[Rfam]
RNA sequence: GUCGGCUACGGGGACAUGCACCCCGUGACAAUCGGGGGAAAGAUAGUGGGGUCUCUGUGUGCCAUCGCUGGUGUGUUGACCAUUGCCCUGCCUGUACCCGUUAUCGUCUCCAAU
Numbered sequence: 001g002u003c004g005g006c007u008a009c010g011g012g013g014a015c016a017u018g019c020a021c022c023c024c025g026u027g028a029c030a031a032u033c034g035g036g037g038g039a040a041a042g043a044u045a046g047u048g049g050g051g052u053c054u055c056u057g058u059g060u061g062c063c064a065u066c067g068c069u070g071g072u073g074u075g076u077u078g079a080c081c082a083u084u085g086c087c088c089u090g091c092c093u094g095u096a097c098c099c100g101u102u103a104u105c106g107u108c109u110c111c112a113a114u
Stems, first nucleotide, its partner, number of pairs: 001114002004111002008107004013102003018097001020095002037077002040074001049063002
Dot-bracket structure: ((.((..((((.(((..(.((...............((.(........((...........))..........).))................)).)..))).))))..)).))

The record is a 114-nucleotide sequence from Dicentrarchus labrax, which matches "Potassium channel RNA editing signal" in Rfam. Rfam 15.1 lists 14,095 matches to the family in 1,000 species. Its family is annotated with adenosine to inosine editing in the Gene Ontology.